The record is an 87-nucleotide RNA sequence from Clostridium cylindrosporum, which matches "c-di-GMP-I riboswitch aptamer" in Rfam. The match comes from Rfam's covariance-model search (86 bits). GEMM was predicted in a large-scale screen for bacterial structured RNA regulatory elements.
RNA sequence: UUCUGAAAAAGGCAAAUUUGUCGAAAGGCAAAGACGCAAAGCUAUGGACCUAAGGGGUAAUAACCCUAUGGCUGCCAGGUUACCAGG
Numbered sequence: 001u002u003c004u005g006a007a008a009a010a011g012g013c014a015a016a017u018u019u020g021u022c023g024a025a026a027g028g029c030a031a032a033g034a035c036g037c038a039a040a041g042c043u044a045u046g047g048a049c050c051u052a053a054g055g056g057g058u059a060a061u062a063a064c065c066c067u068a069u070g071g072c073u074g075c076c077a078g079g080u081u082a083c084c085a086g087g
Stems, first nucleotide, its partner, number of pairs: 012037002017032006040081004045077003049071002055066004